[Rfam]
RNA sequence: AACACGCUCCUUAGAUCCACCUCUGGAGGGCAUUCCUGUGCUGAUGCUGUUGUCUGAGUGCUGCAGCUCCAGCCUGGAGGCCCUCAGCAGCUUUUUGGCUGUACAGUUGGAGGUGCUUGAGUCAUUGGCGUGUGAGAGCAGUCUACCUGCCUCCCAGCACCCCUGCUGCACUGGCAACCCUCAGUUCCACUGAUGGAACCCUACCAGUAGAGCUAUGCUGGGGGAUGGACAAU
Numbered sequence: 001a002a003c004a005c006g007c008u009c010c011u012u013a014g015a016u017c018c019a020c021c022u023c024u025g026g027a028g029g030g031c032a033u034u035c036c037u038g039u040g041c042u043g044a045u046g047c048u049g050u051u052g053u054c055u056g057a058g059u060g061c062u063g064c065a066g067c068u069c070c071a072g073c074c075u076g077g078a079g080g081c082c083c084u085c086a087g088c089a090g091c092u093u094u095u096u097g098g099c100u101g102u103a104c105a106g107u108u109g110g111a112g113g114u115g116c117u118u119g120a121g122u123c124a125u126u127g128g129c130g131u132g133u134g135a136g137a138g139c140a141g142u143c144u145a146c147c148u149g150c151c152u153c154c155c156a157g158c159a160c161c162c163c164u165g166c167u168g169c170a171c172u173g174g175c176a177a178c179c180c181u182c183a184g185u186u187c188c189a190c191u192g193a194u195g196g197a198a199c200c201c202u203a204c205c206a207g208u209a210g211a212g213c214u215a216u217g218c219u220g221g222g223g224g225a226u227g228g229a230c231a232a233u
Stems, first nucleotide, its partner, number of pairs: 002133007010121005018115008026085005034078003040073004046067004052061001054060001087102006147228003151224001154221001156219004163210006172203003181193003
The record is a 233-nucleotide RNA from Salmo salar, which matches "Small nucleolar RNA SNORA53" in Rfam. Pairs were carried over by alignment from the consensus structure, which was predicted with RNAalifold. The family has 28 seed sequences and 1,090 matches in Rfam 15.1. From the family's description: The snoRNA ACA53 belongs to the H/ACA family of pseudouridylation guide snoRNAs. Taxonomically the source falls in Salmo (Eukaryota, Bilateria, Teleostomi, Salmoniformes). It scores 106 bits against the family's covariance model.